[Rfam]
RNA sequence: GCGAGUCAGUGAUGAAUAAAUUACCUACAUUGUUUGAUUCAGAUGAUAAGAAAUAUUAUCUGAGACUUGC
Numbered sequence: 001g002c003g004a005g006u007c008a009g010u011g012a013u014g015a016a017u018a019a020a021u022u023a024c025c026u027a028c029a030u031u032g033u034u035u036g037a038u039u040c041a042g043a044u045g046a047u048a049a050g051a052a053a054u055a056u057u058a059u060c061u062g063a064g065a066c067u068u069g070c
Stems, first nucleotide, its partner, number of pairs: 001070002004067004